[Rfam]
RNA sequence: UCGUGAAAGCUAACGGGAGAAGAGAGAGAGUACAGCUUUGGCCGAUUAGUUAUAGAUCAUAUCGUACUAGUACUACCUUCUCGCCAAGGCUGUACCCUCUCUCUUCUUCUCUCGGCUUUUCGGUA
Numbered sequence: 001u002c003g004u005g006a007a008a009g010c011u012a013a014c015g016g017g018a019g020a021a022g023a024g025a026g027a028g029a030g031u032a033c034a035g036c037u038u039u040g041g042c043c044g045a046u047u048a049g050u051u052a053u054a055g056a057u058c059a060u061a062u063c064g065u066a067c068u069a070g071u072a073c074u075a076c077c078u079u080c081u082c083g084c085c086a087a088g089g090c091u092g093u094a095c096c097c098u099c100u101c102u103c104u105u106c107u108u109c110u111c112u113c114g115g116c117u118u119u120u121c122g123g124u125a
Base pairs, nucleotide, nucleotide: 005121006120009116013112015110016109017108018107019106020105021104022103023102024101025100026099027098028097030095031094032093033092034091035090036089037088038087
Dot-bracket structure: ....((..(...(.((((((((((((((.(((((((((................................................))))))))).)))))))))))))).)...)...))....